A member of the RNA family "Burkholderia RNA 11" from Paraburkholderia xenovorans, 122 nucleotides long. Rfam links the family to the GO term protein binding. Rfam's curators write: Co-purified with Hfq, expression confirmed by Northern blot. Predicted target marZ. Overlaps coding sequence.
[Rfam]
RNA sequence: GCAACCUGAAGCUGGCGCGCGAAAACCGGACGGUGUUCCUGAGUCUGCUGGGAAUAUCGUGGCUGUGGUUCGUCGGCGCAAUCUUCCUGUCGUCGUUUUUCAGCUUUGCGAAAGACGUGCUG
Numbered sequence: 001g002c003a004a005c006c007u008g009a010a011g012c013u014g015g016c017g018c019g020c021g022a023a024a025a026c027c028g029g030a031c032g033g034u035g036u037u038c039c040u041g042a043g044u045c046u047g048c049u050g051g052g053a054a055u056a057u058c059g060u061g062g063c064u065g066u067g068g069u070u071c072g073u074c075g076g077c078g079c080a081a082u083c084u085u086c087c088u089g090u091c092g093u094c095g096u097u098u099u100u101c102a103g104c105u106u107u108g109c110g111a112a113a114g115a116c117g118u119g120c121u122g
Base pairs, nucleotide, nucleotide: 010049011048012047014045015044018041019040021038022037023036025034026033051121052120054118055117057115058114060112067099068098071095072094074092075091076090077089078088